[Rfam]
RNA sequence: UCUGAGCUUUGUAACGUGGGCUUGUCACCAAGUGGAGCAUUAAGGUAUUUGAAUAAUUUGGUAAUGAAUUCAAGGUUGACAUUAUGAGCUAUCUUUGAUUUGCCCGUUUCCAAGUUGGGCAGUGGAUGGUAUGUUUUUGGCUAACGCUUGAAUCAUAUUCUCCCUAAACUUGAGGGUAAUGCGUGAGGCUGGUUUCAUAGAGAAGCGAUUACCUCUCUCUCUCAACGGUGGAAGGAUUACAAUUCAUUUGCUCAUAUUGUCAAUUUGCCUUGGAAUCCACCAAAUUCAACUAAUAUUUUU
Numbered sequence: 001u002c003u004g005a006g007c008u009u010u011g012u013a014a015c016g017u018g019g020g021c022u023u024g025u026c027a028c029c030a031a032g033u034g035g036a037g038c039a040u041u042a043a044g045g046u047a048u049u050u051g052a053a054u055a056a057u058u059u060g061g062u063a064a065u066g067a068a069u070u071c072a073a074g075g076u077u078g079a080c081a082u083u084a085u086g087a088g089c090u091a092u093c094u095u096u097g098a099u100u101u102g103c104c105c106g107u108u109u110c111c112a113a114g115u116u117g118g119g120c121a122g123u124g125g126a127u128g129g130u131a132u133g134u135u136u137u138u139g140g141c142u143a144a145c146g147c148u149u150g151a152a153u154c155a156u157a158u159u160c161u162c163c164c165u166a167a168a169c170u171u172g173a174g175g176g177u178a179a180u181g182c183g184u185g186a187g188g189c190u191g192g193u194u195u196c197a198u199a200g201a202g203a204a205g206c207g208a209u210u211a212c213c214u215c216u217c218u219c220u221c222u223c224a225a226c227g228g229u230g231g232a233a234g235g236a237u238u239a240c241a242a243u244u245c246a247u248u249u250g251c252u253c254a255u256a257u258u259g260u261c262a263a264u265u266u267g268c269c270u271u272g273g274a275a276u277c278c279a280c281c282a283a284a285u286u287c288a289a290c291u292a293a294u295a296u297u298u299u300u
Base pairs, nucleotide, nucleotide: 002037003036004023005022006021007020008019009018028035029034042299043298044297045296046295047294048293049292051290055286057284058283059282060280062279067276069274070273071272072271073270074269075268076267078261079260080259081258083256084255085254086253087252088251091248096246097245098244100242101241102240104235105234108233109232110231111230112229114226115225116224117223118222119221122218124163125162126161128159129158130157131156132155133154135152136151137150139148140147141146172215173214174213175212182207183206184205189200190199191198

The record is a 300-nucleotide RNA from Zostera marina, which matches "Plant signal recognition particle RNA" in Rfam. The family's consensus secondary structure is taken from published work.